[Rfam]
RNA sequence: ACUCAACGUUAUAGAUUUAAAAAGGAUGAGUUUUGGUUAGGAAAGCACGCCGUUAUUAUUAGUUUACUAAUUCUUAGACGGAUCCUUGAUAAGCCAGUUAGUCCUAAACCUGUUUUUUAGGAGUUU
Numbered sequence: 001a002c003u004c005a006a007c008g009u010u011a012u013a014g015a016u017u018u019a020a021a022a023a024g025g026a027u028g029a030g031u032u033u034u035g036g037u038u039a040g041g042a043a044a045g046c047a048c049g050c051c052g053u054u055a056u057u058a059u060u061a062g063u064u065u066a067c068u069a070a071u072u073c074u075u076a077g078a079c080g081g082a083u084c085c086u087u088g089a090u091a092a093g094c095c096a097g098u099u100a101g102u103c104c105u106a107a108a109c110c111u112g113u114u115u116u117u118u119a120g121g122a123g124u125u126u
Stems, first nucleotide, its partner, number of pairs: 023105005034096005043087003050081004
6S-Flavo RNA: a 126-nucleotide RNA sequence from Tenacibaculum todarodis.
The match comes from Rfam's covariance-model search (92 bits).
It is annotated as a small RNA.